The family of this 145-nucleotide RNA from Panicum hallii is "MIR6234 microRNA precursor family".
[Rfam]
RNA sequence: CCUUUUUCCAUGUGCAAGUGUGUUCCUCUGUUUGAUGCUAAAGGUGGAUGCUCUGAAUGAAACACUUCCCAAGUGUUGUUGCUUCCUUUGUAGUAUCACUACCUUUAGAGUCAGCAGACGAACACACUUGCGCAUAGAGGGGGGG
Numbered sequence: 001c002c003u004u005u006u007u008c009c010a011u012g013u014g015c016a017a018g019u020g021u022g023u024u025c026c027u028c029u030g031u032u033u034g035a036u037g038c039u040a041a042a043g044g045u046g047g048a049u050g051c052u053c054u055g056a057a058u059g060a061a062a063c064a065c066u067u068c069c070c071a072a073g074u075g076u077u078g079u080u081g082c083u084u085c086c087u088u089u090g091u092a093g094u095a096u097c098a099c100u101a102c103c104u105u106u107a108g109a110g111u112c113a114g115c116a117g118a119c120g121a122a123c124a125c126a127c128u129u130g131c132g133c134a135u136a137g138a139g140g141g142g143g144g145g
Stems, first nucleotide, its partner, number of pairs: 002144006009137001014131012027118003032114005038108008047097005054090003059085001061083001063081002065078001068075001
Dot-bracket structure: .((((((.(....((((((((((((.(((..(((((.((((((((.(((((..(((..(.(.(((..(......)..).)).).)..)))..)))))...)))))))).))))).))).)))))))))))).....).)))))).